[Rfam]
RNA sequence: UCCGGUCCUCGGUAGUGGCGCCCGCGAGAUGCGCGGGAGCUUCGAUCGAUGACCGGC
Numbered sequence: 001u002c003c004g005g006u007c008c009u010c011g012g013u014a015g016u017g018g019c020g021c022c023c024g025c026g027a028g029a030u031g032c033g034c035g036g037g038a039g040c041u042u043c044g045a046u047c048g049a050u051g052a053c054c055g056g057c
Base pairs, nucleotide, nucleotide: 002056003055004054005053006052007051009049010048011047012046013045017041018040019039021037022036023035024034025033026032
Dot-bracket structure: .((((((.(((((...(((.((((((.....)))))).)))...))))).)))))).